RNA sequence: UCCAAGACAACGGGGUGCCCCGCCGAGGGGCUGAGAACACACCCGUGGAACCUGCUCUAGCUCGCACUAGCGGAGGGAUUGUCUCCUCGACGCGC
Numbered sequence: 001u002c003c004a005a006g007a008c009a010a011c012g013g014g015g016u017g018c019c020c021c022g023c024c025g026a027g028g029g030g031c032u033g034a035g036a037a038c039a040c041a042c043c044c045g046u047g048g049a050a051c052c053u054g055c056u057c058u059a060g061c062u063c064g065c066a067c068u069a070g071c072g073g074a075g076g077g078a079u080u081g082u083c084u085c086c087u088c089g090a091c092g093c094g095c
Stems, first nucleotide, its partner, number of pairs: 006083005011045004016039001017031005051076003057070004
RNA: TPP riboswitch aptamer (THI element)